Rfam assigns this 139-nucleotide sequence from Panicum virgatum to the family "Small nucleolar RNA Z247".

RNA sequence: CCGAUCGACAACGACGAGCUGGUCAGCAACAUCCUCACUGGCCUCAACUACGACUACAACUCUGUGGUCUCAGCUGUCCUUGCACGAGCUGAGCCCAUUACGGUGAGCGAGCUGUAUACACAGCUUCUUUCUUUUGAUC
Number, nucleotide and partner (000 for none) at each position: 001c000002c000003g000004a138005u137006c136007g135008a134009c000010a000011a000012c000013g000014a000015c000016g000017a000018g000019c000020u000021g000022g000023u000024c000025a000026g000027c000028a000029a000030c000031a000032u000033c000034c000035u000036c000037a000038c000039u000040g000041g000042c000043c000044u000045c000046a000047a000048c000049u000050a000051c000052g000053a000054c000055u000056a000057c000058a000059a000060c000061u000062c000063u000064g000065u000066g000067g000068u000069c000070u000071c000072a000073g000074c000075u000076g000077u000078c000079c000080u000081u000082g000083c000084a000085c000086g000087a000088g108089c107090u106091g000092a104093g000094c000095c000096c000097a000098u000099u000100a000101c000102g000103g000104u092105g000106a090107g089108c088109g000110a000111g000112c000113u000114g000115u000116a000117u000118a000119c000120a000121c000122a000123g000124c000125u000126u000127c000128u000129u000130u000131c000132u000133u000134u008135u007136g006137a005138u004139c000

On this family, see Chen et al., Nucleic Acids Res 2003: "The high diversity of snoRNAs in plants: identification and comparative study of 120 snoRNA genes from Oryza sativa".